RNA sequence: UCGAGUAUGACGAAGAAAAACAUUCGGAUUCCCAUUGAUUUCUGCAAGAAAUAUGAGAUCUUUAACCAGCUACUUCUGACUCGA
Numbered sequence: 001u002c003g004a005g006u007a008u009g010a011c012g013a014a015g016a017a018a019a020a021c022a023u024u025c026g027g028a029u030u031c032c033c034a035u036u037g038a039u040u041u042c043u044g045c046a047a048g049a050a051a052u053a054u055g056a057g058a059u060c061u062u063u064a065a066c067c068a069g070c071u072a073c074u075u076c077u078g079a080c081u082c083g084a
Base pairs, nucleotide, nucleotide: 001084002083003082004081005080